[Rfam]
RNA sequence: UCGAAGCUCUAUUUAUAAAUGGAUAAGACUCUGAAUUUAGUUUAUACGAGGUAUUGAAAGUAAAGCAAUAGUAAUCAACUUAUAAAUUCUCUUGAAAGAGGAUUGAUAUUGCUUUACU
Numbered sequence: 001u002c003g004a005a006g007c008u009c010u011a012u013u014u015a016u017a018a019a020u021g022g023a024u025a026a027g028a029c030u031c032u033g034a035a036u037u038u039a040g041u042u043u044a045u046a047c048g049a050g051g052u053a054u055u056g057a058a059a060g061u062a063a064a065g066c067a068a069u070a071g072u073a074a075u076c077a078a079c080u081u082a083u084a085a086a087u088u089c090u091c092u093u094g095a096a097a098g099a100g101g102a103u104u105g106a107u108a109u110u111g112c113u114u115u116a117c118u
Base pairs, nucleotide, nucleotide: 008023009022010021011020012019059118060117061116062115063114064113065112066111067110068109069108070107073104074103075102079098080097081096
RNA: Plastid-psbA-1 3UTR RNA
Organism: Morella rubra